[Rfam]
RNA sequence: UAAUUUCCAGGUGAGUUUGAAAUUGAAAUGCCUAAAUUGUUUUGUGUACAAUUUAAAUUCGAUUUCUUAUUCAUAGGUGC
Dot-bracket structure: ..((((....((((((..(((((((((.....((((((((.......))))))))..)))))))))..))))))))))..
Record summary: mir-1006 microRNA precursor family: an 80-nucleotide RNA sequence from Drosophila willistoni. Rfam links the family to the GO terms miRNA-mediated post-transcriptional gene silencing and RISC complex. The match comes from Rfam's covariance-model search (90 bits).